[Rfam]
RNA sequence: UAUAAAAUAUAAAUGGAUAAGACUUAGGUUUUAGUGUAUACGAGUUAUUGAAGGAGCAAUACCGCAUUUCUUCUUUUAUCAAGAGGUUGGUAUUGCUCCUUC
Numbered sequence: 001u002a003u004a005a006a007a008u009a010u011a012a013a014u015g016g017a018u019a020a021g022a023c024u025u026a027g028g029u030u031u032u033a034g035u036g037u038a039u040a041c042g043a044g045u046u047a048u049u050g051a052a053g054g055a056g057c058a059a060u061a062c063c064g065c066a067u068u069u070c071u072u073c074u075u076u077u078a079u080c081a082a083g084a085g086g087u088u089g090g091u092a093u094u095g096c097u098c099c100u101u102c
Stems, first nucleotide, its partner, number of pairs: 001015003050102013064088001066087001068085005
RNA: Plastid-psbA-1 3UTR RNA